This 125-nucleotide RNA from Alicyclobacillus acidoterrestris belongs to the Rfam family "c-di-AMP riboswitch aptamer (ydaO/yuaA leader)". Lineage of the source: Bacteria > Bacillota > Caryophanales > Alicyclobacillaceae > Alicyclobacillus.

Nucleotides: 125
Stems, first nucleotide, its partner, number of pairs: 011111004018031003032106006042049002050091003058066002069085004
Number, partner (000 for none) and nucleotide at each position: 001000u002000u003000u004000u005000g006000a007000a008000c009000a010000g011111c012110g013109c014108u015000g016000a017000a018031u019030u020029c021000c022000c023000u024000u025000u026000u027000g028000g029020g030019a031018a032106g033105c034104g035103g036102g037101g038000g039000a040000a041000c042049c043048a044000a045000u046000u047000u048043u049042g050091g051090g052089g053000u054000g055000a056000g057000a058066c059065g060000u061000u062000u063000a064000u065059c066058g067000u068000g069085g070084g071083g072082u073000g074000c075000c076000c077000u078000u079000u080000c081000u082072a083071c084070c085069c086000u087000a088000a089052c090051c091050c092000g093000a094000c095000a096000g097000c098000u099000a100000a101037c102036c103035u104034c105033g106032u107000a108014a109013g110012c111011g112000u113000a114000u115000u116000g117000a118000g119000a120000g121000g122000a123000g124000c125000c